[Rfam]
RNA sequence: GUAGUCCGAUUCACAUCAAUCCACAUAUGUUGAGUGGAUUGGAGUGAAACUUGAACUAAAUUCCACCCCAAUCCACUCAACCACAUGUGCAUUGAGUUGAAUUCGAUA
Numbered sequence: 001g002u003a004g005u006c007c008g009a010u011u012c013a014c015a016u017c018a019a020u021c022c023a024c025a026u027a028u029g030u031u032g033a034g035u036g037g038a039u040u041g042g043a044g045u046g047a048a049a050c051u052u053g054a055a056c057u058a059a060a061u062u063c064c065a066c067c068c069c070a071a072u073c074c075a076c077u078c079a080a081c082c083a084c085a086u087g088u089g090c091a092u093u094g095a096g097u098u099g100a101a102u103u104c105g106a107u108a
Stems, first nucleotide, its partner, number of pairs: 004107003008103006016095005022089005028083002030080002034076009044066003